[Rfam]
RNA sequence: UGACGGUGACGCGACUGGCGGCACGGGGAUGGCUUCAACCAUCGGGGAGCUCGUCGCGGAGGUCGACCGCCUGGGCCUCCGCG
Numbered sequence: 001u002g003a004c005g006g007u008g009a010c011g012c013g014a015c016u017g018g019c020g021g022c023a024c025g026g027g028g029a030u031g032g033c034u035u036c037a038a039c040c041a042u043c044g045g046g047g048a049g050c051u052c053g054u055c056g057c058g059g060a061g062g063u064c065g066a067c068c069g070c071c072u073g074g075g076c077c078u079c080c081g082c083g
Stems, first nucleotide, its partner, number of pairs: 004056006011050002015046002017071005029042004060078005
RNA: ZMP/ZTP riboswitch aptamer (pfl RNA motif)